[Rfam]
RNA sequence: GUGUCAUAAUCAUUGUUGACCGUUCAUACGACCACUGCAAUUGCAUUGCAGCUUAUGUGGGGGUUGUAUAACGGUCAACAAAGAUCCUUGACAU
Number, nucleotide and partner (000 for none) at each position: 001g094002u093003g092004u091005c090006a089007u000008a000009a085010u084011c083012a000013u081014u080015g079016u078017u077018g076019a075020c074021c073022g072023u071024u070025c000026a069027u068028a067029c066030g065031a064032c063033c062034a000035c060036u059037g058038c057039a056040a000041u000042u000043g052044c000045a000046u000047u000048g000049c000050a000051g000052c043053u000054u000055a000056u039057g038058u037059g036060g035061g000062g033063g032064u031065u030066g029067u028068a027069u026070a024071a023072c022073g021074g020075u019076c018077a017078a016079c015080a014081a013082a000083g011084a010085u009086c000087c000088u000089u006090g005091a004092c003093a002094u001
RNA: MIR2587 microRNA precursor family